[Rfam]
RNA sequence: CACGUCAGCGUUCAGGCAUUCGCAGAAUCGAAACUGCAAAAGUGACGUGACGUCCCAUAGACGCGGUUUACGACAUCUGCCGCGGUGAAAACCUGCAAGGCGUAUAGGGUAAACAAAUUCGGCGAAAGGCUGGUGGGGUGUCGUACCCACCGGUCUUUU
Number, nucleotide and partner (000 for none) at each position: 001c049002a048003c047004g046005u045006c044007a043008g000009c000010g000011u000012u000013c000014a000015g000016g000017c000018a000019u000020u000021c000022g037023c036024a035025g034026a000027a000028u122029c121030g120031a119032a118033a000034c025035u024036g023037c022038a000039a000040a000041a000042g000043u007044g006045a005046c004047g003048u002049g001050a103051c102052g101053u100054c099055c000056c000057a000058u000059a000060g000061a000062c000063g083064c082065g081066g080067u079068u000069u000070a144071c143072g142073a141074c140075a139076u000077c000078u000079g067080c066081c065082g064083c063084g093085g092086u091087g000088a000089a000090a000091a086092c085093c084094u000095g000096c000097a000098a000099g054100g053101c052102g051103u050104a000105u000106a000107g000108g000109g000110u000111a000112a000113a000114c000115a000116a000117a000118u032119u031120c030121g029122g028123c000124g000125a000126a157127a156128g155129g154130c153131u152132g151133g150134u149135g148136g147137g000138g000139u075140g074141u073142c072143g071144u070145a000146c000147c136148c135149a134150c133151c132152g131153g130154u129155c128156u127157u126158u000159u000
RNA: FuFi-1 RNA